[Rfam]
c-di-AMP riboswitch aptamer (ydaO/yuaA leader): a 142-nucleotide RNA sequence from Desulfopila aestuarii. Rfam's curators write: This family represents a conserved RNA structure found upstream of the ydaO and yuaA genes in Bacillus subtilis and related genes in other bacteria. The ydaO/yuaA element is thought to act as a genetic 'off' switch for the ydaO and yuaA genes in its native state. It is believed that the element may be triggered during osmotic shock leading to activation of ydaO, a predicted amino acid transporter gene, and members of the yuaA-yubG operon which code for KtrA and KtrB K+ transporters. The match comes from Rfam's covariance-model search (91 bits).
RNA sequence: CGCUGCAGAAUGCUGAGUUCCGUCUGGGUGGACGGGAGCGGGGAAACCAAUUUGUAGGGGCGUAUCGCCGGAAUACCGGCGUAGGGCAAACUCUUCGGCCCGAGCCCGUCAGCUAACCUCGUAAGCACCGAAGGGAAAGCAC
Number, nucleotide and partner (000 for none) at each position: 001c000002g000003c000004u000005g000006c000007a000008g000009a000010a000011u127012g126013c125014u124015g000016a000017g000018u037019u036020c035021c034022g033023u032024c031025u000026g000027g000028g000029u000030g000031g024032a023033c022034g021035g020036g019037a018038g122039c121040g120041g119042g118043g117044a000045a000046a000047c000048c057049a000050a000051u000052u000053u000054g000055u000056a000057g048058g107059g106060g105061c000062g000063u000064a000065u000066c081067g080068c079069c078070g000071g000072a000073a000074u000075a000076c000077c000078g069079g068080c067081g066082u000083a000084g101085g100086g099087c098088a000089a000090a000091c000092u000093c000094u000095u000096c000097g000098g087099c086100c085101c084102g000103a000104g000105c060106c059107c058108g000109u000110c000111a000112g000113c000114u000115a000116a000117c043118c042119u041120c040121g039122u038123a000124a014125g013126c012127a011128c000129c000130g000131a000132a000133g000134g000135g000136a000137a000138a000139g000140c000141a000142c000